[Rfam]
The record is a 107-nucleotide sequence from Dickeya chrysanthemi, which matches "Salmonella enterica Typhi npcRNA 44" in Rfam. By type it is a non-coding RNA gene.
RNA sequence: CUUUAACAAUCCGGAACAAGCUGAAUAAUUUGAAACGACGGCAUAUGAAUGUGAAUUCAUGUGUUGUUCGAGUCUCUCAAAAUACUCGCAUCCCGAGACACUUUCGG
Numbered sequence: 001c002u003u004u005a006a007c008a009a010u011c012c013g014g015a016a017c018a019a020g021c022u023g024a025a026u027a028a029u030u031u032g033a034a035a036c037g038a039c040g041g042c043a044u045a046u047g048a049a050u051g052u053g054a055a056u057u058c059a060u061g062u063g064u065u066g067u068u069c070g071a072g073u074c075u076c077u078c079a080a081a082a083u084a085c086u087c088g089c090a091u092c093c094c095g096a097g098a099c100a101c102u103u104u105c106g107g
Stems, first nucleotide, its partner, number of pairs: 020089002023087002026084002030081001036070003043062007094106003098102001